[Rfam]
RNA sequence: CCAGCACUUUCACAGGUCCUCCCAAGGCAGUGGGGCUAGGAUUUGGUAGCUGGUGCUGAGAGAAACCCUUGAUGCAUCCUUGCCCUGGGAUGUCCAGUGGCAGCUAUCACUCAAUGGGACAGAG
Number, nucleotide and partner (000 for none) at each position: 001c000002c000003a057004g056005c055006a054007c053008u052009u000010u000011c000012a000013c045014a044015g043016g000017u041018c040019c039020u038021c035022c034023c033024a000025a000026g000027g000028c000029a000030g000031u000032g000033g023034g022035g021036c000037u000038a020039g019040g018041a017042u000043u015044u014045g013046g000047u000048a000049g000050c000051u000052g008053g007054u006055g005056c004057u003058g000059a000060g000061a000062g000063a000064a000065a000066c118067c117068c116069u114070u113071g112072a111073u109074g108075c000076a107077u106078c000079c000080u103081u102082g101083c100084c099085c097086u096087g095088g094089g000090a000091u000092g000093u000094c088095c087096a086097g085098u000099g084100g083101c082102a081103g080104c000105u000106a077107u076108c074109a073110c000111u072112c071113a070114a069115u000116g068117g067118g066119a000120c000121a000122g000123a000124g000
RNA: Small nucleolar RNA SNORA30/SNORA37 family